[Rfam]
Background:
Shown here is a 79-nucleotide sequence from Oncorhynchus kisutch, a member of the family "Small nucleolar RNA SNORD72". The base pairs follow the family's consensus structure. On this family, see Huttenhofer et al., EMBO J 2001: "RNomics: an experimental approach that identifies 201 candidates for novel, small, non-messenger RNAs in mouse". About the family: snoRNA HBII-240 belongs to the CD family of snoRNAs. The source organism's lineage runs through Eukaryota, Euteleostomi, Actinopteri, Osteoglossocephalai and Oncorhynchus. The family has 16 seed sequences and 726 matches in Rfam 15.1.
RNA sequence: GUCUUGUCAAUUAUGUUUUCAAUACAAAUGUCUUUACACAUGAAUUUCAGUGAUUAUUUCAUGUUGGCUGAGACAUGAU
Numbered sequence: 001g002u003c004u005u006g007u008c009a010a011u012u013a014u015g016u017u018u019u020c021a022a023u024a025c026a027a028a029u030g031u032c033u034u035u036a037c038a039c040a041u042g043a044a045u046u047u048c049a050g051u052g053a054u055u056a057u058u059u060c061a062u063g064u065u066g067g068c069u070g071a072g073a074c075a076u077g078a079u
Base pairs, nucleotide, nucleotide: 002078003077005075006074007073008072